[Rfam]
RNA sequence: UGAGAGAACUAUGUUGAAGGAACUCGGCAAAAUACCUCCGUAAGUUCGCGAGAAGGAGGCCCGGUUCCUAGGCAACUAGGGGCUGGGGGCACAAACCAGGGGGUGGCGACUGUUUAUUAAAAACACAGGGCUCUGCGAAGUCGCAAGACGACGUAUAGGGUCUGACGCCUGCCCGGUGCCUGAAGGUUAAAAGGAGGGGUGAGAGCUCUGAAUUGAAGCCCAGGUAAACGGCGGCCGUAACUAUAACGGUCCUAAGGUAGCGAAAUUCCUUGUCGGGUAAGUUCCGACCUGCACGAAUGGCGUAACGACUUCCCCGCUGUCUCCAACAUAGACUCA
Numbered sequence: 001u002g003a004g005a006g007a008a009c010u011a012u013g014u015u016g017a018a019g020g021a022a023c024u025c026g027g028c029a030a031a032a033u034a035c036c037u038c039c040g041u042a043a044g045u046u047c048g049c050g051a052g053a054a055g056g057a058g059g060c061c062c063g064g065u066u067c068c069u070a071g072g073c074a075a076c077u078a079g080g081g082g083c084u085g086g087g088g089g090c091a092c093a094a095a096c097c098a099g100g101g102g103g104u105g106g107c108g109a110c111u112g113u114u115u116a117u118u119a120a121a122a123a124c125a126c127a128g129g130g131c132u133c134u135g136c137g138a139a140g141u142c143g144c145a146a147g148a149c150g151a152c153g154u155a156u157a158g159g160g161u162c163u164g165a166c167g168c169c170u171g172c173c174c175g176g177u178g179c180c181u182g183a184a185g186g187u188u189a190a191a192a193g194g195a196g197g198g199g200u201g202a203g204a205g206c207u208c209u210g211a212a213u214u215g216a217a218g219c220c221c222a223g224g225u226a227a228a229c230g231g232c233g234g235c236c237g238u239a240a241c242u243a244u245a246a247c248g249g250u251c252c253u254a255a256g257g258u259a260g261c262g263a264a265a266u267u268c269c270u271u272g273u274c275g276g277g278u279a280a281g282u283u284c285c286g287a288c289c290u291g292c293a294c295g296a297a298u299g300g301c302g303u304a305a306c307g308a309c310u311u312c313c314c315c316g317c318u319g320u321c322u323c324c325a326a327c328a329u330a331g332a333c334u335c336a
Stems, first nucleotide, its partner, number of pairs: 001336004009331008018322003035059005044049001060087012088092001100315004105310002107307002111125003128163008136153001140149003166302004171232003176229002178225005185220003191214002196209005233251006252256001262289001272288006

Notes: Bacterial large subunit ribosomal RNA: a 336-nucleotide part of an RNA from Sulfitobacter mediterraneus. The source organism's lineage runs through Bacteria, Pseudomonadati, Rhodobacterales, Roseobacteraceae and Sulfitobacter. The family's consensus secondary structure is taken from published work.